[Rfam]
RNA sequence: GCACCCUUGGCUACACUCUGAAAUCUACCAAUCUUCACGGUGGUUUAUUUCUAUUUUUGCUCAAGGAAGAAAAAGUAGAUCAGCUGGCCAGAUACUCACCGCGACACUCUGGCAGUCUUGCUCUGUGGGUGUAGAGGUCCAUUUACCUGGCCAACAU
Numbered sequence: 001g002c003a004c005c006c007u008u009g010g011c012u013a014c015a016c017u018c019u020g021a022a023a024u025c026u027a028c029c030a031a032u033c034u035u036c037a038c039g040g041u042g043g044u045u046u047a048u049u050u051c052u053a054u055u056u057u058u059g060c061u062c063a064a065g066g067a068a069g070a071a072a073a074a075g076u077a078g079a080u081c082a083g084c085u086g087g088c089c090a091g092a093u094a095c096u097c098a099c100c101g102c103g104a105c106a107c108u109c110u111g112g113c114a115g116u117c118u119u120g121c122u123c124u125g126u127g128g129g130u131g132u133a134g135a136g137g138u139c140c141a142u143u144u145a146c147c148u149g150g151c152c153a154a155c156a157u
Stems, first nucleotide, its partner, number of pairs: 007064003020051005027044003086152004099137002102134001104132003108129003
The record is a 157-nucleotide RNA sequence from Tolypocladium ophioglossoides, which matches "Small nucleolar RNA snR80" in Rfam. The family's RNA type in Rfam is H/ACA-box small nucleolar RNA. Lineage of the source: Eukaryota > Dikarya > sordariomyceta > Tolypocladium > Tolypocladium ophioglossoides. For this family Rfam cites "Genome-wide searching for pseudouridylation guide snoRNAs: analysis of the Saccharomyces cerevisiae genome" (Schattner et al., Nucleic Acids Res, 2004). The family's consensus secondary structure was predicted with WAR. The match comes from Rfam's covariance-model search (43 bits). Clan: SNORA28 clan.